Rfam assigns this 100-nucleotide sequence from Planococcus sp. PAMC 21323 to the family "Purine riboswitch aptamer". Lineage of the source: Bacteria > Bacillati > Bacillota > Caryophanaceae > Planococcus. Its family is annotated with purine nucleobase biosynthetic process in the Gene Ontology.
RNA sequence: AAGAAAUAAACUAUAUGCAUCUGUAUAACCCUAAGAAUAUGGCUUAGGGGUCUCUACCAGGAACCUCAAAAUCCUGAUUACAGAAAACGAUUUGUUCGUU
Numbered sequence: 001a002a003g004a005a006a007u008a009a010a011c012u013a014u015a016u017g018c019a020u021c022u023g024u025a026u027a028a029c030c031c032u033a034a035g036a037a038u039a040u041g042g043c044u045u046a047g048g049g050g051u052c053u054c055u056a057c058c059a060g061g062a063a064c065c066u067c068a069a070a071a072u073c074c075u076g077a078u079u080a081c082a083g084a085a086a087a088c089g090a091u092u093u094g095u096u097c098g099u100u
Base pairs, nucleotide, nucleotide: 020084021083022082023081024080025079029049030048031047032046033045034044035043058076059075060074061073062072
A search with the family's covariance model found it, with a score of 74 bits.